[Rfam]
RNA sequence: GGGAGCUUAGCUCAGUUGGCUAGAGUGUGGGUCUCAUAUAACAUAUGAGUCGGUCUCAGGCCGUCCCAUCCCAAGGUCGUGAGUUCGAGCCUCACAGUUCCCA
Numbered sequence: 001g002g003g004a005g006c007u008u009a010g011c012u013c014a015g016u017u018g019g020c021u022a023g024a025g026u027g028u029g030g031g032u033c034u035c036a037u038a039u040a041a042c043a044u045a046u047g048a049g050u051c052g053g054u055c056u057c058a059g060g061c062c063g064u065c066c067c068a069u070c071c072c073a074a075g076g077u078c079g080u081g082a083g084u085u086c087g088a089g090c091c092u093c094a095c096a097g098u099u100c101c102c103a
Stems, first nucleotide, its partner, number of pairs: 001102007010026004028073004079095005
RNA: tRNA
Organism: Thermothielavioides terrestris